The record is a 129-nucleotide RNA from Jaculus jaculus, which matches "Small nucleolar RNA SNORA33" in Rfam. ACA33 is a member of the H/ACA class of snoRNA that guide the sites of modification of uridines to pseudouridines. It is annotated as an H/ACA-box small nucleolar RNA. Pairs were carried over by alignment from the consensus structure, which was predicted with PFOLD. The source organism's lineage runs through Eukaryota, Deuterostomia, Amniota, Boreoeutheria and Jaculus. The match comes from Rfam's covariance-model search (87 bits).

RNA sequence: GACUCAGCUGAUUAAUCUGCUUCUCUGAAUGUGUUUCUACAGAAAUUUAGAAAGAGCUGGCAACAGUGAUGCCAUCUUAUGAGCCUUAAGGACAGCAGGUCAUUACAGCCCCUGAAAAGGGCCACAGUA
Numbered sequence: 001g002a003c004u005c006a007g008c009u010g011a012u013u014a015a016u017c018u019g020c021u022u023c024u025c026u027g028a029a030u031g032u033g034u035u036u037c038u039a040c041a042g043a044a045a046u047u048u049a050g051a052a053a054g055a056g057c058u059g060g061c062a063a064c065a066g067u068g069a070u071g072c073c074a075u076c077u078u079a080u081g082a083g084c085c086u087u088a089a090g091g092a093c094a095g096c097a098g099g100u101c102a103u104u105a106c107a108g109c110c111c112c113u114g115a116a117a118a119g120g121g122c123c124a125c126a127g128u129a
Stems, first nucleotide, its partner, number of pairs: 004060004016043004071122003083109002087105003091101003
Dot-bracket structure: ...((((........((((....................)))).............))))..........(((.........((..(((.(((.....))).)))..))..........))).......